[Rfam]
RNA sequence: CAAGUUCUGUGAUACACUUAGGCUCUGAGUCUGUGGUAGUCAGUGCAUAACAGAACUUUGG
Numbered sequence: 001c002a003a004g005u006u007c008u009g010u011g012a013u014a015c016a017c018u019u020a021g022g023c024u025c026u027g028a029g030u031c032u033g034u035g036g037u038a039g040u041c042a043g044u045g046c047a048u049a050a051c052a053g054a055a056c057u058u059u060g061g
Stems, first nucleotide, its partner, number of pairs: 002058008015045004021041004

Shown here is a 61-nucleotide RNA from Salmo salar, a member of the family "mir-148/mir-152 microRNA precursor family". The literature on the family includes a 2004 paper in Proc Natl Acad Sci U S A by Kim et al., "Identification of many microRNAs that copurify with polyribosomes in mammalian neurons".